[Rfam]
RNA sequence: GGGGAGCAUCCUAAAGCUGAGAUGUUACUUGAUACAAUCUUCCUACAUAGUACAUCUGUAUUUCCUGCUUGUAGAAUCGAGCUAUUUCUACGAGCCUCAAAAUAUAGAGACAUAC
Numbered sequence: 001g002g003g004g005a006g007c008a009u010c011c012u013a014a015a016g017c018u019g020a021g022a023u024g025u026u027a028c029u030u031g032a033u034a035c036a037a038u039c040u041u042c043c044u045a046c047a048u049a050g051u052a053c054a055u056c057u058g059u060a061u062u063u064c065c066u067g068c069u070u071g072u073a074g075a076a077u078c079g080a081g082c083u084a085u086u087u088c089u090a091c092g093a094g095c096c097u098c099a100a101a102a103u104a105u106a107g108a109g110a111c112a113u114a115c
Stems, first nucleotide, its partner, number of pairs: 001030003005026006055110003067095008075086003
RNA: Small nucleolar RNA snoR104
Organism: Momordica charantia